[Rfam]
RNA: FMN riboswitch aptamer (RFN element)
RNA sequence: UAUUAUCUUCAGGGCAAGGUGAAGGAUAAAACUUAUCCCAAUUCCUGACCGGUGGUUAUAGUCCACGAGCAGAUGCUGAACUGGUGAAAUUCCAGUACCGACGGUAUAGUCCGGAUGAAAGAAGAAUAUU
Numbered sequence: 001u002a003u004u005a006u007c008u009u010c011a012g013g014g015c016a017a018g019g020u021g022a023a024g025g026a027u028a029a030a031a032c033u034u035a036u037c038c039c040a041a042u043u044c045c046u047g048a049c050c051g052g053u054g055g056u057u058a059u060a061g062u063c064c065a066c067g068a069g070c071a072g073a074u075g076c077u078g079a080a081c082u083g084g085u086g087a088a089a090u091u092c093c094a095g096u097a098c099c100g101a102c103g104g105u106a107u108a109g110u111c112c113g114g115a116u117g118a119a120a121g122a123a124g125a126a127u128a129u130u
Base pairs, nucleotide, nucleotide: 003128006125007124008123009122010121017046018045019044048110049109050100051099052066053065054064055063061098062097069076070075080096081095082094083093084092102113103112104111